The family of this 143-nucleotide RNA from Buttiauxella agrestis is "sraL Hfq binding RNA". Rfam links the family to the GO term negative regulation of gene expression. On this family, see Viegas et al., Nucleic Acids Res 2007: "Characterization of the role of ribonucleases in Salmonella small RNA decay". The base pairs follow the family's consensus structure, which was predicted with RNAalifold. Lineage of the source: Bacteria > Pseudomonadati > Pseudomonadota > Gammaproteobacteria > Buttiauxella agrestis.

RNA sequence: GUCAGUGCAAUCCGGAACCUCCUGAGAAUGUGUGAUUGAGGGACGCUGAUGUCGGGGGAAACCCUCCUUGCGAAAAGCGGGAUAGAUCGAAAGACAAAGACCGGGUAAUAAACUAAAGCGCCGAAGUUGGGCGCUUUAGUUUU
Number, nucleotide and partner (000 for none) at each position: 001g000002u049003c048004a047005g046006u045007g044008c000009a000010a000011u000012c000013c000014g022015g021016a000017a000018c000019c000020u000021c015022c014023u000024g000025a000026g000027a000028a000029u000030g000031u040032g000033u038034g000035a000036u000037u000038g033039a000040g031041g000042g000043a000044c007045g006046c005047u004048g003049a002050u000051g095052u094053c093054g000055g064056g063057g062058g000059a000060a000061a000062c057063c056064c055065u082066c081067c080068u079069u000070g078071c077072g000073a000074a000075a000076a000077g071078c070079g068080g067081g066082a065083u000084a000085g000086a000087u000088c000089g000090a000091a000092a000093g053094a052095c051096a000097a000098a000099g000100a000101c000102c000103g000104g000105g000106u000107a000108a000109u000110a142111a141112a140113c139114u138115a137116a136117a135118g134119c133120g132121c131122c130123g000124a000125a000126g000127u000128u000129g000130g122131g121132c120133g119134c118135u117136u116137u115138a114139g113140u112141u111142u110143u000
Record summary:
About the family: The SraL RNA ('sra' for small RNA), discovered in E. coli, and later in Salmonella Tiphimurium. It is expressed only in stationary phase. It may possibly play a role in Salmonella virulence. The major stationary phase regulator RpoS is transcriptionally regulating SraL and directly binds to the sraL gene promoter.